[Rfam]
The record is a 217-nucleotide RNA from Rhizobium album, which matches "permuted transfer-messenger RNA" in Rfam.

RNA sequence: GGUGCUAAACCUUAUGUGCAAUAGAUGUACAGGACGCGGCUUCGAAGCCGCCGCCUCCACCAAGAACAGCCGAAGCCGACUGCUGUUGAUGGGGGCGAAAUGGGAUCGACUGGCAUUGAAAGACAUAAGCUGUGCUCGGCAUGAUACCACCGUUAUCGGGUCAAAAAGUGUAGUUGCAAACGACAACAACGCUAAGGAAUACGCUCUCGCUGCCUAA
Dot-bracket structure: (((((........((((........(((.(((...(((((......)))))(((((((................................)))))))............)))))).......)))).....)))))(((..........))).................................................................

Annotation
It is annotated as a non-coding RNA gene. Lineage of the source: Bacteria > Pseudomonadati > Alphaproteobacteria > Rhizobiaceae > Rhizobium. It scores 150 bits against the family's covariance model.